Notes
The family of this 58-nucleotide RNA from Corynebacterium mycetoides is "msiK RNA". The family's consensus secondary structure is taken from published work. Rfam classes the family as a cis-regulatory element. It scores 49 bits against the family's covariance model.
RNA sequence: GUAAGUGCAACCCCACUACGGAUCGUUCGGCACGUUCCUGCCGAUGGAGGAGAAUCAU
Numbered sequence: 001g002u003a004a005g006u007g008c009a010a011c012c013c014c015a016c017u018a019c020g021g022a023u024c025g026u027u028c029g030g031c032a033c034g035u036u037c038c039u040g041c042c043g044a045u046g047g048a049g050g051a052g053a054a055u056c057a058u
Stems, first nucleotide, its partner, number of pairs: 011049001013047003027044006